[Rfam]
RNA: Ruegeria cis2 sRNA
RNA sequence: AUCGAGCUAUAGUGCGGAUUGUAGUUGAUAAAGACGAAGCCGCGCGACUGAUCGAUGCUGUGAAACAGCGGGUUCCAAUCGAACAACGGGAGCAUCGUGCUUGGCAGUGAAUUGGCCACAAACAUCUUGCCCGAUGCGAUCAUGUUGGCGCGUG
Number, nucleotide and partner (000 for none) at each position: 001a000002u037003c036004g035005a000006g000007c000008u034009a000010u032011a000012g000013u000014g000015c027016g026017g025018a000019u000020u000021g000022u000023a000024g000025u017026u016027g015028a000029u000030a000031a000032a010033g000034a008035c004036g003037a002038a000039g059040c000041c057042g056043c054044g053045c000046g000047a000048c000049u000050g000051a000052u000053c044054g043055a000056u042057g041058c000059u039060g000061u000062g000063a000064a000065a000066c000067a000068g153069c152070g151071g000072g084073u083074u082075c081076c000077a000078a000079u000080c000081g075082a074083a073084c072085a000086a000087c000088g149089g000090g000091a146092g145093c144094a143095u142096c000097g000098u000099g000100c136101u000102u133103g132104g131105c129106a128107g127108u000109g125110a000111a000112u121113u120114g119115g000116c000117c000118a000119c114120a113121a112122a000123c000124a000125u109126c000127u107128u106129g105130c000131c104132c103133g102134a000135u000136g100137c000138g000139a000140u000141c000142a095143u094144g093145u092146u091147g000148g000149c088150g000151c070152g069153u068154g000